Small nucleolar RNA SNORD82: a 68-nucleotide RNA sequence from Astyanax mexicanus.
Rfam links the family to the GO terms nucleolus and RNA processing.
From the family's description: snoRNA U82 or Z25 is found in both humans and mice.
RNA sequence: UGCACACAUGAUGAACAUUUAGGGACUUAAUACUGAAACUAUUUGCUGAUUUGUUUGGUCUGAUGUGC
Numbered sequence: 001u002g003c004a005c006a007c008a009u010g011a012u013g014a015a016c017a018u019u020u021a022g023g024g025a026c027u028u029a030a031u032a033c034u035g036a037a038a039c040u041a042u043u044u045g046c047u048g049a050u051u052u053g054u055u056u057g058g059u060c061u062g063a064u065g066u067g068c
Stems, first nucleotide, its partner, number of pairs: 002068005
Dot-bracket structure: .(((((.........................................................)))))
Pairs were carried over by alignment from the consensus structure, which was predicted with PFOLD. For this family Rfam cites "Purified box C/D snoRNPs are able to reproduce site-specific 2'-O-methylation of target RNA in vitro" (Galardi et al., Mol Cell Biol, 2002).